[Rfam]
RNA sequence: GGAAAAGAUAGAGGUUGCAAUGAUAAAAAGUAAUAUUAAUGAGUUAAACGCUGUGAUUUAAUAUGAAAGGUAUUAUUGCCGAAGUAUAUAGUUAAUGUUUUAAGGCUAUAUGUUGGGUUUGUAUAAAAUAUAUGCAAAACUGCCAUAAUAUUUAUGGAGAGCUAUCUUUGUG
Numbered sequence: 001g002g003a004a005a006a007g008a009u010a011g012a013g014g015u016u017g018c019a020a021u022g023a024u025a026a027a028a029a030g031u032a033a034u035a036u037u038a039a040u041g042a043g044u045u046a047a048a049c050g051c052u053g054u055g056a057u058u059u060a061a062u063a064u065g066a067a068a069g070g071u072a073u074u075a076u077u078g079c080c081g082a083a084g085u086a087u088a089u090a091g092u093u094a095a096u097g098u099u100u101u102a103a104g105g106c107u108a109u110a111u112g113u114u115g116g117g118u119u120u121g122u123a124u125a126a127a128a129u130a131u132a133u134g135c136a137a138a139a140c141u142g143c144c145a146u147a148a149u150a151u152u153u154a155u156g157g158a159g160a161g162c163u164a165u166c167u168u169u170g171u172g
Stems, first nucleotide, its partner, number of pairs: 006167006017079009033064007083114011115141002118138008143157006
The record is a 172-nucleotide RNA sequence from Clostridium gasigenes, which matches "Lysine riboswitch aptamer" in Rfam. The match comes from Rfam's covariance-model search (108 bits). Riboswitches are metabolite binding domains within certain messenger RNAs that serve as precision sensors for their corresponding targets.